[Rfam]
Source information
The record is a 56-nucleotide sequence from Salipiger thiooxidans, which matches "sul1 RNA" in Rfam. Rfam classes the family as a riboswitch.
Nucleotides: 056
Base pairs, nucleotide, nucleotide: 006024007023008022009021010020011019012017031051032050033049034048035047036046
Number, partner (000 for none) and nucleotide at each position: 001000u002000a003000a004000g005000g006024a007023c008022c009021c010020g011019g012017u013000g014000a015000g016000a017012g018000c019011c020010c021009g022008g023007g024006u025000g026000g027000c028000u029000c030000u031051u032050c033049u034048g035047g036046c037000c038000g039000c040000u041000g042000a043000u044000c045000c046036g047035c048034c049033a050032g051031a052000u053000c054000a055000u056000u